Rfam assigns this 57-nucleotide RNA sequence from Corymbia citriodora to the family "Small nucleolar RNA snoR60". The family's RNA type in Rfam is C/D-box small nucleolar RNA. On this family, see Barneche et al., J Biol Chem 2000: "Fibrillarin genes encode both a conserved nucleolar protein and a novel small nucleolar RNA involved in ribosomal RNA methylation in Arabidopsis thaliana". Gene Ontology terms of the family: nucleolus and RNA processing. It scores 43 bits against the family's covariance model. The organism belongs to Corymbia citriodora, within Eukaryota.
Nucleotides: 057
Base pairs, nucleotide, nucleotide: 002057003056004055005054
Number, partner (000 for none) and nucleotide at each position: 001000a002057u003056g004055c005054a006000c007000a008000u009000g010000a011000a012000g013000a014000a015000u016000u017000a018000a019000c020000u021000c022000g023000g024000a025000g026000u027000u028000g029000g030000g031000u032000g033000a034000u035000g036000c037000a038000a039000g040000c041000u042000c043000g044000a045000g046000u047000u048000u049000u050000c051000u052000g053000a054005u055004g056003c057002a